[Rfam]
RNA sequence: GCGCCGGGACGACCCGCGCCGUCGAUGACAAACCGCGGGACGACCCGC
Numbered sequence: 001g002c003g004c005c006g007g008g009a010c011g012a013c014c015c016g017c018g019c020c021g022u023c024g025a026u027g028a029c030a031a032a033c034c035g036c037g038g039g040a041c042g043a044c045c046c047g048c
Stems, first nucleotide, its partner, number of pairs: 001019003005016004035048005
A member of the RNA family "Guanidine-II riboswitch aptamer (mini-ykkC)" from Salinisphaera shabanensis, 48 nucleotides long. A search with the family's covariance model found it, with a score of 38 bits.